RNA sequence: GGUAUUGUUUGCCCCACUAUGAGCCCCGGAAACUCAAUAGUACUUGUCAAACAACUA
Numbered sequence: 001g002g003u004a005u006u007g008u009u010u011g012c013c014c015c016a017c018u019a020u021g022a023g024c025c026c027c028g029g030a031a032a033c034u035c036a037a038u039a040g041u042a043c044u045u046g047u048c049a050a051a052c053a054a055c056u057a
Base pairs, nucleotide, nucleotide: 006053007052008051009050010049011048016041017040018039019038020036021035022034023033
RNA: Ribosomal protein L13 leader
Organism: Globicatella sp. HMSC072A10